[Rfam]
A member of the RNA family "TPP riboswitch aptamer (THI element)" from Allopusillimonas soli, 106 nucleotides long. NCBI's taxonomy places the organism under Bacteria, Pseudomonadota, Betaproteobacteria, Burkholderiales, Allopusillimonas. On this family, see Rodionov et al., J Biol Chem 2002: "Comparative genomics of thiamin biosynthesis in procaryotes. New genes and regulatory mechanisms".
Nucleotides: 106
Stems, first nucleotide, its partner, number of pairs: 007093004011056004016050001017028004035049002039045001062087003068081004
Number, partner (000 for none) and nucleotide at each position: 001000c002000u003000g004000u005000g006000u007093u008092c009091c010090u011056g012055g013054g014053g015000g016050a017028g018027c019026c020025c021000u022000u023000g024000u025020g026019g027018g028017c029000u030000g031000a032000g033000a034000c035049u036048c037000c038000g039045c040000c041000a042000u043000a044000u045039g046000g047000c048036g049035g050016u051000a052000a053014c054013c055012c056011u057000u058000u059000g060000a061000a062087c063086c064085u065000g066000a067000u068081c069080c070079g071078g072000g073000u074000c075000a076000u077000g078071c079070c080069g081068g082000c083000g084000a085064a086063g087062g088000g089000a090010a091009g092008g093007a094000c095000g096000g097000c098000a099000u100000a101000c102000c103000g104000c105000a106000a